Rfam assigns this 75-nucleotide RNA sequence from Stegodyphus mimosarum to the family "mir-252 microRNA precursor family". Pairs were carried over by alignment from the consensus structure, which was predicted with RNAalifold. Its Rfam clan is "mir-252 microRNA precursor family". Rfam links the family to the GO terms miRNA-mediated post-transcriptional gene silencing and RISC complex. The source organism's lineage runs through Eukaryota, Ecdysozoa, Arachnida, Eresidae and Stegodyphus. Rfam 15.1 lists 422 matches to the family in 306 species.
[Rfam]
RNA sequence: UCACUGUCCUAAGUACUAGCGCCGCAGGAGUGUGGUUUAAGUGUCACCCCUGCAGCCUUGGUGCUUAACACAGGA
Number, nucleotide and partner (000 for none) at each position: 001u000002c000003a000004c073005u072006g071007u070008c000009c000010u067011a066012a065013g064014u063015a062016c061017u060018a059019g058020c000021g000022c000023c000024g053025c052026a051027g050028g049029a000030g047031u000032g000033u000034g000035g000036u000037u000038u000039a000040a000041g000042u000043g000044u000045c000046a000047c030048c000049c028050c027051u026052g025053c024054a000055g000056c000057c000058u019059u018060g017061g016062u015063g014064c013065u012066u011067a010068a000069c000070a007071c006072a005073g004074g000075a000